[Rfam]
RNA sequence: GUGCAUCCAGUAGGAAUUGAACGCACGAAUUCGUCAAUUAUAAGUUCGGUGCUUUAACCAUUCAGCCAUAGAUGC
Numbered sequence: 001g002u003g004c005a006u007c008c009a010g011u012a013g014g015a016a017u018u019g020a021a022c023g024c025a026c027g028a029a030u031u032c033g034u035c036a037a038u039u040a041u042a043a044g045u046u047c048g049g050u051g052c053u054u055u056a057a058c059c060a061u062u063c064a065g066c067c068a069u070a071g072a073u074g075c
Stems, first nucleotide, its partner, number of pairs: 003075005010026002014022001040069002044066003048062004
RNA: Plastid-ycf2 5UTR RNA
Organism: Cynara cardunculus